[Rfam]
RNA sequence: CAGUGCAUUCAUCCAUAAAGUAAAAAGCGCUACUAAAAGUUCUAUACAGUGUAGUGUUUCCUACUUUAUGGACGAGUGGACUGU
Numbered sequence: 001c002a003g004u005g006c007a008u009u010c011a012u013c014c015a016u017a018a019a020g021u022a023a024a025a026a027g028c029g030c031u032a033c034u035a036a037a038a039g040u041u042c043u044a045u046a047c048a049g050u051g052u053a054g055u056g057u058u059u060c061c062u063a064c065u066u067u068a069u070g071g072a073c074g075a076g077u078g079g080a081c082u083g084u
Stems, first nucleotide, its partner, number of pairs: 014070009026058008
Shown here is an 84-nucleotide sequence from Astyanax mexicanus, a member of the family "mir-142 microRNA precursor family". For this family Rfam cites "Small RNA expression and strain specificity in the rat" (Linsen et al., BMC Genomics, 2010). The organism belongs to Astyanax, within Eukaryota.